[Rfam]
Rfam assigns this 74-nucleotide RNA sequence from Chiloscyllium punctatum to the family "Small nucleolar RNA SNORD26". NCBI's taxonomy places the organism under Eukaryota, Gnathostomata, Galeomorphii, Orectolobiformes, Chiloscyllium. Rfam links the family to the GO terms RNA processing and nucleolus. On this family, see Tycowski et al., Nature 1996: "A mammalian gene with introns instead of exons generating stable RNA products".
RNA sequence: CUACAAAGAUGAUAGAUGAACUCUCUCUUUCUGCAUAUUCCAUGUAGAAACUUUGAAAUUUUUAGCUGAGUAGC
Numbered sequence: 001c002u003a004c005a006a007a008g009a010u011g012a013u014a015g016a017u018g019a020a021c022u023c024u025c026u027c028u029u030u031c032u033g034c035a036u037a038u039u040c041c042a043u044g045u046a047g048a049a050a051c052u053u054u055g056a057a058a059u060u061u062u063u064a065g066c067u068g069a070g071u072a073g074c
Stems, first nucleotide, its partner, number of pairs: 001073004

Clan: SNORD26 clan. Pairs were carried over by alignment from the consensus structure, which was predicted with PFOLD.